[Rfam]
RNA sequence: AGAUCCGAAGCGAAAGCGUCGGGAUAAUAAUAACGAUGAAAUUCCUCUUUGACGGGCCAAUAGCGAUAUUGGCCAUUUUUUU
Numbered sequence: 001a002g003a004u005c006c007g008a009a010g011c012g013a014a015a016g017c018g019u020c021g022g023g024a025u026a027a028u029a030a031u032a033a034c035g036a037u038g039a040a041a042u043u044c045c046u047c048u049u050u051g052a053c054g055g056g057c058c059a060a061u062a063g064c065g066a067u068a069u070u071g072g073c074c075a076u077u078u079u080u081u082u
Stems, first nucleotide, its partner, number of pairs: 007020002010017002028033001055074008

Shown here is an 82-nucleotide RNA from Salmonella enterica, a member of the family "sroB RNA". The base pairs follow the family's consensus structure, which was predicted with LocARNA. The sequence is in the family's curated seed alignment.